[Rfam]
Nucleotides: 155
Stems, first nucleotide, its partner, number of pairs: 061153008069091001071090004099122004131145004
Number, partner (000 for none) and nucleotide at each position: 001000g002000g003000u004000c005000u006000u007000u008000g009000a010000c011000a012000u013000a014000u015000u016000u017000g018000a019000u020000a021000a022000g023000c024000a025000a026000c027000g028000a029000u030000g031000g032000a033000a034000u035000a036000a037000c038000a039000a040000a041000u042000a043000a044000a045000u046000a047000g048000u049000g050000a051000u052000u053000a054000a055000c056000c057000c058000a059000u060000c061153g062152c063151u064150g065149g066148u067147a068146g069091a070000g071090c072089c073088u074087g075000a076000g077000c078000a079000a080000a081000a082000a083000g084000a085000g086000c087074c088073a089072g090071g091069u092000g093000c094000a095000u096000a097000g098000g099122c100121a101120a102119g103000g104000c105000g106000u107000c108000a109000g110000c111000u112000u113000g114000a115000c116000g117000g118000g119102c120101u121100u122099g123000u124000c125000c126000a127000c128000u129000g130000c131145g132144g133143g134142g135000a136000g137000c138000g139000a140000a141000a142134c143133c144132u145131c146068c147067u148066g149065c150064c151063a152062g153061c154000a155000c
Notes:
The record is a 155-nucleotide RNA sequence, which matches "DUF2693 RNA" in Rfam. Rfam classes the family as a small RNA.